[Rfam]
RNA: Bacillaceae-1 RNA
RNA sequence: CGAAAAGGAAGUUCGAUUAAAACCGCCACAUCACGUGGCAACAUCGAACCACCCCACGUCCUGUGGG
Numbered sequence: 001c002g003a004a005a006a007g008g009a010a011g012u013u014c015g016a017u018u019a020a021a022a023c024c025g026c027c028a029c030a031u032c033a034c035g036u037g038g039c040a041a042c043a044u045c046g047a048a049c050c051a052c053c054c055c056a057c058g059u060c061c062u063g064u065g066g067g
Stems, first nucleotide, its partner, number of pairs: 011049007025039005053067005